[Rfam]
RNA: TD-1 RNA
Organism: Treponema pedis
RNA sequence: UUUAAACUGCCGAGUUUGCCCUUCGGCAAACGUCGUGAUUGUAUGCCGUUUCUCAUUGCAUUACGAAACGGCGGAAAAUAAACAAUCCUCAAAAUCCGAAGAUUUUUCCGGUUGUUUAUUUUAAGA
Numbered sequence: 001u002u003u004a005a006a007c008u009g010c011c012g013a014g015u016u017u018g019c020c021c022u023u024c025g026g027c028a029a030a031c032g033u034c035g036u037g038a039u040u041g042u043a044u045g046c047c048g049u050u051u052c053u054c055a056u057u058g059c060a061u062u063a064c065g066a067a068a069c070g071g072c073g074g075a076a077a078a079u080a081a082a083c084a085a086u087c088c089u090c091a092a093a094a095u096c097c098g099a100a101g102a103u104u105u106u107u108c109c110g111g112u113u114g115u116u117u118a119u120u121u122u123a124a125g126a
Base pairs, nucleotide, nucleotide: 012034013033014031015030016029017028018027019026020025045072046071047070048069049068050067051066052065077120078119079118080117081116082115083114084113085112087111088110091106092105093104094103095102096101
Dot-bracket structure: ...........(((((((((....))))))).))..........((((((((............))))))))....(((((((((.((..((((((....))))))...)))))))))))......